[Rfam]
RNA sequence: GUUCGACCCGGUGAUGGACCCCGCCGGGGCCGGUUGAUCCGGCCCGAACCGCCUCUUUGGCUGAUGGCUCCUGUCCACCG
Numbered sequence: 001g002u003u004c005g006a007c008c009c010g011g012u013g014a015u016g017g018a019c020c021c022c023g024c025c026g027g028g029g030c031c032g033g034u035u036g037a038u039c040c041g042g043c044c045c046g047a048a049c050c051g052c053c054u055c056u057u058u059g060g061c062u063g064a065u066g067g068c069u070c071c072u073g074u075c076c077a078c079c080g
Stems, first nucleotide, its partner, number of pairs: 010025004016071003020067002051061003
A member of the RNA family "Fluoride riboswitch aptamer (crcB RNA motif)" from Tessaracoccus bendigoensis, 80 nucleotides long. Taxonomically the source falls in Tessaracoccus bendigoensis (Bacteria, Bacillati, Actinomycetota, Actinomycetes). Its family is annotated with positive regulation of gene expression and response to fluoride in the Gene Ontology. The match comes from Rfam's covariance-model search (35 bits).